[Rfam]
RNA sequence: CCAGUCAGCACGGGAGAGCCGCGGUCUUGGGCCGCGCACCGAAGGAGCAACCGCCCCGGCAAUCUCUCAGGUCCCCGGACCGUGCUGAUCAG
Dot-bracket structure: .....((((((((......((((.........)))).(((((..(((...((.....))....))))).))).......)))))))).....
The record is a 92-nucleotide RNA sequence from Georgenia subflava, which matches "Glycine riboswitch aptamer" in Rfam. Gene Ontology term of the family: glycine biosynthetic process. The match comes from Rfam's covariance-model search (69 bits). The base pairs follow the family's consensus structure.